The family of this 78-nucleotide RNA from Crotophaga sulcirostris is "Small nucleolar RNA SNORD69". By type it is a C/D-box small nucleolar RNA. From the family's description: snoRNA HBII-210 belongs to the C/D family of snoRNAs. It is the human orthologue of the mouse MBII-210 and is predicted to guide the 2'O-ribose methylation of large 28S rRNA on residue G4464. For this family Rfam cites "RNomics: an experimental approach that identifies 201 candidates for novel, small, non-messenger RNAs in mouse" (Huttenhofer et al., EMBO J, 2001).
RNA sequence: UACCCAAAGCAAUGAUGAAAAAAGCACUGAAGCUGACUCUGUGUGAAGCACAUUCAAUCCAACACUGAGCUUUGUGUC
Numbered sequence: 001u002a003c004c005c006a007a008a009g010c011a012a013u014g015a016u017g018a019a020a021a022a023a024g025c026a027c028u029g030a031a032g033c034u035g036a037c038u039c040u041g042u043g044u045g046a047a048g049c050a051c052a053u054u055c056a057a058u059c060c061a062a063c064a065c066u067g068a069g070c071u072u073u074g075u076g077u078c
Stems, first nucleotide, its partner, number of pairs: 002077002005074006